The record is a 613-nucleotide RNA sequence from Treponema primitia, which matches "Bacterial RNase P class A" in Rfam.
It scores 202 bits against the family's covariance model.
It is annotated as a ribozyme.

RNA sequence: ACGAUGAACCAGGUUCCCGCGCCGCGGCUUAUGCUGCGGUGAGGAAAGUCCGGGCUCCGCAGGGCAUGAUGCCGGGUAACGCCCGGGCGGCAGAGCGGUAACGUUCUGCCGACAGACAGCGCAACAGAAAGCAAACCGCUGAAAGGGAAAUGCCAUAAAAGGCGUCUCCCCGAGAAUUCGGGUAAGCCCGAAUUCUCGAAGAUGAUUUUUGGUAAACCAAAAAUCAUCCAGUAAGGGUGAAAUGGCGGGGUAAGAGCCCACCUCGGCAGCGGUAACGCAGCCGAAAAGAUUCCGGCUUUGCCGGAAAAUGGCAAACCUCAUCAGGAGCAAAGCCAAGCAGCGGCGUGAAAAGGCGAAAGCCUUUUCACGUUGGAGAUUGGGCCGUAGGCCCAAUCUCCGGCAACCAAUGGUCCGUUGGUCAUGCCGCGGGUAGACUGCUCGGGACUAGUCCCGGGAAACCGUUCGUAAGGGCGGUUCGAGAUAGAUGGGAACCGGUGGAAUUCUUCCUAUGGGAGACCCACCUGGAGUAUUUCCCGCAAGGGGAAUACUCCAACAGGAAAUAGCCCUUUAAGGUUAUUUCCUGCCAGAACCCGGCUUAUGGUUCAUCGUUUUU
Number, nucleotide and partner (000 for none) at each position: 001a609002c608003g607004a606005u605006g604007a603008a602009c601010c600011a599012g493013g492014u491015u490016c489017c488018c487019g000020c041021g040022c039023c038024g037025c036026g035027g034028c033029u000030u000031a000032u000033g028034c027035u026036g025037c024038g023039g022040u021041g020042a000043g000044g000045a000046a597047a596048g595049u000050c594051c593052g592053g591054g590055c327056u326057c325058c324059g000060c000061a000062g413063g412064g411065c410066a000067u323068g322069a321070u320071g319072c086073c085074g084075g083076g082077u000078a000079a000080c000081g000082c076083c075084c074085g073086g072087g113088c111089g110090g109091c108092a107093g106094a105095g104096c103097g102098g000099u000100a000101a000102c097103g096104u095105u094106c093107u092108g091109c090110c089111g088112a000113c087114a318115g317116a000117c000118a000119g316120c000121g312122c311123a000124a000125c000126a000127g000128a000129a000130a000131g000132c000133a000134a000135a000136c236137c235138g232139c231140u230141g229142a000143a227144a000145g225146g224147g000148a000149a000150a000151u000152g000153c000154c000155a000156u000157a000158a000159a000160a000161g000162g000163c000164g000165u000166c000167u000168c000169c000170c000171c000172g000173a000174g000175a000176a000177u000178u000179c000180g000181g000182g000183u000184a000185a000186g000187c000188c000189c000190g000191a000192a000193u000194u000195c000196u000197c000198g000199a000200a000201g000202a000203u000204g000205a000206u000207u000208u000209u000210u000211g000212g000213u000214a000215a000216a000217c000218c000219a000220a000221a000222a000223a000224u146225c145226a000227u143228c000229c141230a140231g139232u138233a000234a000235g137236g136237g000238u000239g000240a000241a000242a000243u000244g262245g261246c000247g259248g258249g257250g000251u000252a000253a000254g000255a000256g000257c249258c248259c247260a000261c245262c244263u305264c303265g302266g301267c300268a299269g298270c000271g296272g000273u000274a000275a000276c000277g000278c000279a000280g000281c000282c000283g000284a000285a000286a000287a000288g000289a000290u000291u000292c000293c000294g000295g000296c271297u000298u269299u268300g267301c266302c265303g264304g000305a263306a000307a000308a000309u000310g000311g122312c121313a000314a000315a000316c119317c115318u114319c071320a070321u069322c068323a067324g058325g057326a056327g055328c000329a000330a000331a436332g435333c000334c433335a000336a000337g000338c000339a000340g427341c426342g425343g424344c423345g422346u000347g000348a000349a000350a000351a000352g000353g000354c000355g000356a000357a000358a000359g000360c000361c000362u000363u000364u000365u000366c000367a000368c000369g000370u000371u000372g000373g000374a000375g000376a000377u000378u000379g000380g000381g000382c000383c000384g000385u000386a000387g000388g000389c000390c000391c000392a000393a000394u000395c000396u000397c000398c000399g000400g000401c000402a000403a000404c418405c417406a416407a415408u414409g000410g065411u064412c063413c062414g408415u407416u406417g405418g404419u000420c000421a000422u345423g344424c343425c342426g341427c340428g000429g000430g000431u000432a000433g334434a000435c332436u331437g000438c000439u000440c000441g000442g000443g000444a000445c000446u000447a000448g000449u000450c000451c000452c000453g000454g000455g000456a000457a476458a475459c474460c473461g472462u471463u470464c469465g000466u000467a000468a000469g464470g463471g462472c461473g460474g459475u458476u457477c000478g000479a000480g000481a000482u000483a000484g000485a000486u000487g018488g017489g016490a015491a014492c013493c012494g000495g000496u000497g000498g000499a000500a000501u000502u000503c000504u000505u000506c000507c000508u000509a000510u000511g000512g000513g000514a000515g000516a000517c000518c000519c000520a000521c000522c000523u000524g000525g000526a000527g000528u000529a000530u000531u000532u000533c000534c000535c000536g000537c000538a000539a000540g000541g000542g000543g000544a000545a000546u000547a000548c000549u000550c000551c000552a000553a000554c000555a000556g000557g000558a000559a000560a000561u000562a000563g000564c000565c000566c000567u000568u000569u000570a000571a000572g000573g000574u000575u000576a000577u000578u000579u000580c000581c000582u000583g000584c000585c000586a000587g000588a000589a000590c054591c053592c052593g051594g050595c048596u047597u046598a000599u011600g010601g009602u008603u007604c006605a005606u004607c003608g002609u001610u000611u000612u000613u000